Shown here is a 321-nucleotide RNA from Pitta sordida, a member of the family "7SK RNA". Its Rfam clan is "7SK clan". It is annotated as a non-coding RNA gene.
RNA sequence: AACCAUGAAAGCGAUCUGGCUACGACAUCUGUCACCCUGUUGAUCGCCAGGGUGGAUUCAGCUGAUCUAGCUGGCUAGAUGGGUGUACCCUUCCUCCCUCAAUGCUCUAUGUGCUUCCCUCCCAAAGCUGCACGCUCAGUCGAAGAGGACGACCUAGAGAUGGUACUGUUCAUCGGUCAAGGGUAUACGGUACCUGCGCUCCCCUUCUAGAACCUCAAAAAAAGCUCAAGGUCCAUUUGUAGGAGAACGUAGGGUAGUCAAGUUUUCAAGACUGCAGACACAUCCAAGUGAGGCGCUGCAUGGGGCAGUUUGCCAUUGUUU
Numbered sequence: 001a002a003c004c005a006u007g008a009a010a011g012c013g014a015u016c017u018g019g020c021u022a023c024g025a026c027a028u029c030u031g032u033c034a035c036c037c038u039g040u041u042g043a044u045c046g047c048c049a050g051g052g053u054g055g056a057u058u059c060a061g062c063u064g065a066u067c068u069a070g071c072u073g074g075c076u077a078g079a080u081g082g083g084u085g086u087a088c089c090c091u092u093c094c095u096c097c098c099u100c101a102a103u104g105c106u107c108u109a110u111g112u113g114c115u116u117c118c119c120u121c122c123c124a125a126a127g128c129u130g131c132a133c134g135c136u137c138a139g140u141c142g143a144a145g146a147g148g149a150c151g152a153c154c155u156a157g158a159g160a161u162g163g164u165a166c167u168g169u170u171c172a173u174c175g176g177u178c179a180a181g182g183g184u185a186u187a188c189g190g191u192a193c194c195u196g197c198g199c200u201c202c203c204c205u206u207c208u209a210g211a212a213c214c215u216c217a218a219a220a221a222a223a224g225c226u227c228a229a230g231g232u233c234c235a236u237u238u239g240u241a242g243g244a245g246a247a248c249g250u251a252g253g254g255u256a257g258u259c260a261a262g263u264u265u266u267c268a269a270g271a272c273u274g275c276a277g278a279c280a281c282a283u284c285c286a287a288g289u290g291a292g293g294c295g296c297u298g299c300a301u302g303g304g305g306c307a308g309u310u311u312g313c314c315a316u317u318g319u320u321u
Stems, first nucleotide, its partner, number of pairs: 001108001006101003011096001013093002018090002025086009035074002037070003042067004046062002116163002119159003122139001125136001127135002140156001142154001194262002199257002202254004207249001214245003220240001222238003286321003290316001292314003295309005

A search with the family's covariance model found it, with a score of 250 bits. The base pairs follow the family's consensus structure, which is taken from published work.